Fluoride riboswitch aptamer (crcB RNA motif): a 71-nucleotide RNA from Alistipes sp. An31A.
Its family is annotated with response to fluoride and positive regulation of gene expression in the Gene Ontology.
Lineage of the source: Bacteria > Pseudomonadati > Bacteroidales > Rikenellaceae > Alistipes.
[Rfam]
RNA sequence: AGCCGCAAAGGCAAUGGUAUCUGCCUCAAACCGCCGCCCGUUCGGGAUGUGCUGAUGAUACCUGCAUAAAC
Numbered sequence: 001a002g003c004c005g006c007a008a009a010g011g012c013a014a015u016g017g018u019a020u021c022u023g024c025c026u027c028a029a030a031c032c033g034c035c036g037c038c039c040g041u042u043c044g045g046g047a048u049g050u051g052c053u054g055a056u057g058a059u060a061c062c063u064g065c066a067u068a069a070a071c
Stems, first nucleotide, its partner, number of pairs: 010025004016062006033052002035049001
The family's consensus secondary structure is taken from published work.